Group II catalytic intron D1-D4-1: a 78-nucleotide RNA sequence from Agrilactobacillus composti. Lineage of the source: Bacteria > Lactobacillales > Lactobacillaceae > Agrilactobacillus > Agrilactobacillus composti. For this family Rfam cites "Group II introns: structure and catalytic versatility of large natural ribozymes" (Lehmann and Schmidt, Crit Rev Biochem Mol Biol, 2003). The base pairs follow the family's consensus structure.
[Rfam]
RNA sequence: CAAACUAGGCAGCGAUGUCUAGCUGAAUGAUACAGAAGUCAGCCGAGGCCAUAGUAGUUGCCAAUGGUAAUGAAGGGC
Numbered sequence: 001c002a003a004a005c006u007a008g009g010c011a012g013c014g015a016u017g018u019c020u021a022g023c024u025g026a027a028u029g030a031u032a033c034a035g036a037a038g039u040c041a042g043c044c045g046a047g048g049c050c051a052u053a054g055u056a057g058u059u060g061c062c063a064a065u066g067g068u069a070a071u072g073a074a075g076g077g078c
Stems, first nucleotide, its partner, number of pairs: 001025002005022007039046002048078003057071006